[Rfam]
RNA sequence: AAUUUCAGGUAAUCGCGGGUAUAUGCAUAUACCUGAGGAAAGUCCAUGCUCGCACAAGCUGAAACGCUUGUAGUGUUCGUGUUUAGCGAAAAAAUAAGCUAAAGCAUUCAUUUGACGGCAACUGAACCCACUAAGGUCACUGGACUAUGUGCAAGUAAGUUUGAAAGUGCCACAGAGACGAGUCAACUAUGAAAAUAGUUGAAUGGAACGCGGUAAACCCCUCGAGCGAGCAACCCAAACAUUGGUAGGGGCGCUCUUUGACUGGAAAUAAACGGAAUAAGAGACUAAAUGAUUUAGUAGACAGAUGAUUACCGAACCGGUAUUAAACCUGUGAUAUCGGGGAACAGAACAUGGCUUAUCGAA
Numbered sequence: 001a002a003u004u005u006c007a008g009g010u011a012a013u014c015g016c017g018g019g020u021a022u023a024u025g026c027a028u029a030u031a032c033c034u035g036a037g038g039a040a041a042g043u044c045c046a047u048g049c050u051c052g053c054a055c056a057a058g059c060u061g062a063a064a065c066g067c068u069u070g071u072a073g074u075g076u077u078c079g080u081g082u083u084u085a086g087c088g089a090a091a092a093a094a095u096a097a098g099c100u101a102a103a104g105c106a107u108u109c110a111u112u113u114g115a116c117g118g119c120a121a122c123u124g125a126a127c128c129c130a131c132u133a134a135g136g137u138c139a140c141u142g143g144a145c146u147a148u149g150u151g152c153a154a155g156u157a158a159g160u161u162u163g164a165a166a167g168u169g170c171c172a173c174a175g176a177g178a179c180g181a182g183u184c185a186a187c188u189a190u191g192a193a194a195a196u197a198g199u200u201g202a203a204u205g206g207a208a209c210g211c212g213g214u215a216a217a218c219c220c221c222u223c224g225a226g227c228g229a230g231c232a233a234c235c236c237a238a239a240c241a242u243u244g245g246u247a248g249g250g251g252c253g254c255u256c257u258u259u260g261a262c263u264g265g266a267a268a269u270a271a272a273c274g275g276a277a278u279a280a281g282a283g284a285c286u287a288a289a290u291g292a293u294u295u296a297g298u299a300g301a302c303a304g305a306u307g308a309u310u311a312c313c314g315a316a317c318c319g320g321u322a323u324u325a326a327a328c329c330u331g332u333g334a335u336a337u338c339g340g341g342g343a344a345c346a347g348a349a350c351a352u353g354g355c356u357u358a359u360c361g362a363a
Stems, first nucleotide, its partner, number of pairs: 004363003007359001008313007016035006040357003044354005049230005054071006077225003081221001082103006104116001105114002117220002120161004129151003135146003167218002169214003183202008234250003254283005284298006317340009
Dot-bracket structure: ...(((((((((((.((((((........))))))....[[[.[[[[[(((((((((((......)))))).....(((.(((((((..........))))))(((......)).)((.((((.....(((...(((......)))..)))......)))).....(((((...........((((((((....)))))))).........)))..))))).))))))))...(((...........)))...(((((....................)))))((((((...))))))........)))))))...(((((((((......))))))))).........]]]]]]]].).)))

The record is a 363-nucleotide sequence from Aerococcus sp. HMSC10H05, which matches "Bacterial RNase P class B" in Rfam. Rfam describes the family as follows. Ribonuclease P (RNase P) is a ubiquitous endoribonuclease, found in archaea, bacteria and eukarya as well as chloroplasts and mitochondria. Its best characterised activity is the generation of mature 5'-ends of tRNAs by cleaving the 5'-leader elements of precursor-tRNAs.